[Rfam]
RNA sequence: UAUAACUUAUUUCUCGAGAAGUAAAAUGCGUAAUAAACAUUUAUAUUACAAAGUGCUUCCUUUAAUACUCCGAAUAGCAUCCUUUAUUUUGCACAUUAUAAGAUGUUAUAAGCUCGGUAAAGUCGACUGAGAGCCACCCUAUCACGUUAUGGUGAGGAAAUGCGAACUAGAGGUAGUCGAGUGGAUGAUAGGUCGGAAGUCUACAAA
Numbered sequence: 001u002a003u004a005a006c007u008u009a010u011u012u013c014u015c016g017a018g019a020a021g022u023a024a025a026a027u028g029c030g031u032a033a034u035a036a037a038c039a040u041u042u043a044u045a046u047u048a049c050a051a052a053g054u055g056c057u058u059c060c061u062u063u064a065a066u067a068c069u070c071c072g073a074a075u076a077g078c079a080u081c082c083u084u085u086a087u088u089u090u091g092c093a094c095a096u097u098a099u100a101a102g103a104u105g106u107u108a109u110a111a112g113c114u115c116g117g118u119a120a121a122g123u124c125g126a127c128u129g130a131g132a133g134c135c136a137c138c139c140u141a142u143c144a145c146g147u148u149a150u151g152g153u154g155a156g157g158a159a160a161u162g163c164g165a166a167c168u169a170g171a172g173g174u175a176g177u178c179g180a181g182u183g184g185a186u187g188a189u190a191g192g193u194c195g196g197a198a199g200u201c202u203a204c205a206a207a
Stems, first nucleotide, its partner, number of pairs: 018059006030049006060199004070117004074109008083100001085098002124195005132186001134184004138157003144153002161180001163179002166177004